Selenocysteine insertion sequence 1: a 65-nucleotide RNA sequence from Mytilus edulis. The family's RNA type in Rfam is cis-regulatory element. NCBI's taxonomy places the organism under Eukaryota, Metazoa, Protostomia, Lophotrochozoa, Mytilus. It scores 35 bits against the family's covariance model.
RNA sequence: CAUAUCUUUUAUGAUGGUAUAAUUAUAAACCCCUAAAGGGAGGGAUUUUGCUUGAUAUUCAUAUG
Numbered sequence: 001c002a003u004a005u006c007u008u009u010u011a012u013g014a015u016g017g018u019a020u021a022a023u024u025a026u027a028a029a030c031c032c033c034u035a036a037a038g039g040g041a042g043g044g045a046u047u048u049u050g051c052u053u054g055a056u057a058u059u060c061a062u063a064u065g
Base pairs, nucleotide, nucleotide: 001065002064003063004062005061016052017051018050019049021047022046023045024044031040032039033038